[Rfam]
RNA sequence: UCUUUUGUAGGCGCAGCACCAUCAAGAUUCACAUGGAAUUAAAAAGUCUCCUAGUUUUCAAUUAGGGUUUUGAUAUGUAUAUGAGAAUCUUGAUGAUGCUGCAUCAACAACCGA
Number, nucleotide and partner (000 for none) at each position: 001u000002c000003u000004u000005u000006u000007g000008u000009a000010g105011g104012c000013g102014c101015a100016g099017c098018a097019c000020c095021a094022u093023c092024a091025a090026g089027a088028u087029u086030c085031a000032c083033a082034u000035g000036g000037a000038a000039u000040u000041a000042a000043a000044a000045a000046g000047u000048c000049u000050c000051c000052u000053a000054g000055u000056u000057u000058u000059c000060a000061a000062u000063u000064a000065g000066g000067g000068u000069u000070u000071u000072g000073a000074u000075a000076u000077g000078u000079a000080u000081a000082u033083g032084a000085g030086a029087a028088u027089c026090u025091u024092g023093a022094u021095g020096a000097u018098g017099c016100u015101g014102c013103a000104u011105c010106a000107a000108c000109a000110a000111c000112c000113g000114a000
Notes
A member of the RNA family "mir-172 microRNA precursor family" from Raphanus sativus, 114 nucleotides long. The source organism's lineage runs through Eukaryota, Streptophytina, Brassicaceae, Brassiceae and Raphanus. It scores 86 bits against the family's covariance model. A reference for the family is Jones-Rhoades and Bartel (2004), "Computational Identification of Plant MicroRNAs and Their Targets, Including a Stress-Induced miRNA", Mol Cell. Rfam links the family to the GO terms RISC complex and miRNA-mediated post-transcriptional gene silencing.